This 223-nucleotide RNA sequence from Scytonema hofmannii belongs to the Rfam family "HNH endonuclease-associated RNA and ORF (HEARO) RNA".
[Rfam]
RNA sequence: GUAAGCAAUCCUCGGCUAAAGACCGAGGGCUUCAGCAAAAGUUGAAGCCCUAGCUUACCAGACUCAGUACUUCGCGUACUACGUUCAGAGUAAGUGUUAAAGUUCCUACCUAUGGAUGCGUAGCUAGUCUGUAGCUCUAGAACCAAAAGAUUAAACAGGUGUAUGGGUUAAACCAGUGUCUUUUGGAUGUGCCGAUUCUGAACAUUGUCGAAGCUAACAUUAC
Numbered sequence: 001g002u003a004a005g006c007a008a009u010c011c012u013c014g015g016c017u018a019a020a021g022a023c024c025g026a027g028g029g030c031u032u033c034a035g036c037a038a039a040a041g042u043u044g045a046a047g048c049c050c051u052a053g054c055u056u057a058c059c060a061g062a063c064u065c066a067g068u069a070c071u072u073c074g075c076g077u078a079c080u081a082c083g084u085u086c087a088g089a090g091u092a093a094g095u096g097u098u099a100a101a102g103u104u105c106c107u108a109c110c111u112a113u114g115g116a117u118g119c120g121u122a123g124c125u126a127g128u129c130u131g132u133a134g135c136u137c138u139a140g141a142a143c144c145a146a147a148a149g150a151u152u153a154a155a156c157a158g159g160u161g162u163a164u165g166g167g168u169u170a171a172a173c174c175a176g177u178g179u180c181u182u183u184u185g186g187a188u189g190u191g192c193c194g195a196u197u198c199u200g201a202a203c204a205u206u207g208u209c210g211a212a213g214c215u216a217a218c219a220u221u222a223c
Base pairs, nucleotide, nucleotide: 001058002057003056004055005054006053008051010029011028012026013025016021030047031046032045033044034043035042036041061209062208063207066080067079068078069077070076083203084202085201086200087199088198089197090196091195104141105140110134111133112132113131114130115129116128117127121216122215123214124213125212143186144185145184146183147182148181149180150179151178155177156176158174159173160172163168
The organism belongs to Scytonema hofmannii, within Bacteria.